[Rfam]
RNA sequence: GUGAGGAGGCACCCAUGCAUCGAAGAUGCAUAUUGGAAUGGUGCCGACGACCUGCCGCCGAACGAAGGUGAGGGGGCGAUACAAGAA
Dot-bracket structure: .......((((((.((((((.....))))))........))))))........(((.((..((....))..)).)))..........
GA-cis RNA: an 87-nucleotide RNA.